A member of the RNA family "atpB RNA", 119 nucleotides long. The family's RNA type in Rfam is cis-regulatory element.
RNA sequence: CUGUCUUGUUCACGCUGAUGUGCGACGGAGUCCGUGUUCAAGGCAGAGAGUUUGAGACGUCCAUCGCACCACAGAAGCCAGCUAUUGGCUGUGUGGCCCGAACACGGGAGAGAACGCUG
Numbered sequence: 001c002u003g004u005c006u007u008g009u010u011c012a013c014g015c016u017g018a019u020g021u022g023c024g025a026c027g028g029a030g031u032c033c034g035u036g037u038u039c040a041a042g043g044c045a046g047a048g049a050g051u052u053u054g055a056g057a058c059g060u061c062c063a064u065c066g067c068a069c070c071a072c073a074g075a076a077g078c079c080a081g082c083u084a085u086u087g088g089c090u091g092u093g094u095g096g097c098c099c100g101a102a103c104a105c106g107g108g109a110g111a112g113a114a115c116g117c118u119g
Base pairs, nucleotide, nucleotide: 001046002045003044004043005042006041007040008039011036012035069096070095071094072093073092076090077089078088079087080086